RNA sequence: GCCUCCCACAAAGGCGUGCCCGUACCCUGCACUGUGCGGGCACGUAAGAACUGGAGGCAGAGCACUGACAGGAACAAGUAACGGGCCAGCUGCUCCCUGGGCUGCUCCUGUAUCUUCCCUUCCUACACUU
Numbered sequence: 001g002c003c004u005c006c007c008a009c010a011a012a013g014g015c016g017u018g019c020c021c022g023u024a025c026c027c028u029g030c031a032c033u034g035u036g037c038g039g040g041c042a043c044g045u046a047a048g049a050a051c052u053g054g055a056g057g058c059a060g061a062g063c064a065c066u067g068a069c070a071g072g073a074a075c076a077a078g079u080a081a082c083g084g085g086c087c088a089g090c091u092g093c094u095c096c097c098u099g100g101g102c103u104g105c106u107c108c109u110g111u112a113u114c115u116u117c118c119c120u121u122c123c124u125a126c127a128c129u130u
Stems, first nucleotide, its partner, number of pairs: 002057005015044007025029001068121001088106003092102003